[Rfam]
RNA sequence: AAAAACGCCCAUUACAGGGGUCGUGCCCCAACCGGGAGCAACCUUACCAUACUCAGAGUUU
Numbered sequence: 001a002a003a004a005a006c007g008c009c010c011a012u013u014a015c016a017g018g019g020g021u022c023g024u025g026c027c028c029c030a031a032c033c034g035g036g037a038g039c040a041a042c043c044u045u046a047c048c049a050u051a052c053u054c055a056g057a058g059u060u061u
Stems, first nucleotide, its partner, number of pairs: 017045005023039002026036002

Description
The family of this 61-nucleotide RNA from Nostocales cyanobacterium LEGE 11386 is "Plastid-psbN 5UTR RNA". A reference for the family is Richter et al. (2023), "Retrograde signaling in plants: A critical review focusing on the GUN pathway and beyond", Plant Commun. The match comes from Rfam's covariance-model search (52 bits). About the family: Plastid psbN is a non-coding RNA (ncRNA) recognised in plastids.